[Rfam]
The record is a 73-nucleotide RNA sequence from Ruminococcaceae bacterium AF10-16, which matches "S10-Clostridia ribosomal protein leader" in Rfam. NCBI's taxonomy places the organism under Bacteria, Bacillati, Clostridia, Eubacteriales, Oscillospiraceae. The literature on the family includes a 2020 paper in BMC Microbiol by Eckert and Weinberg, "Discovery of 20 novel ribosomal leader candidates in bacteria and archaea".

RNA sequence: AUAUUGCGAUGAACCGGGAGAUUGCUCAGGCUUCUGAGGUAACUUUCGGGGAGUAUGUCCGAACAUCGGGCGG
Number, nucleotide and partner (000 for none) at each position: 001a000002u000003a000004u000005u000006g000007c000008g000009a000010u000011g000012a000013a000014c049015c048016g047017g000018g046019a045020g044021a000022u000023u000024g000025c038026u037027c036028a035029g034030g000031c000032u000033u000034c029035u028036g027037a026038g025039g000040u000041a000042a000043c000044u020045u019046u018047c016048g015049g014050g000051g000052a000053g000054u000055a000056u072057g071058u070059c069060c068061g067062a000063a000064c000065a000066u000067c061068g060069g059070g058071c057072g056073g000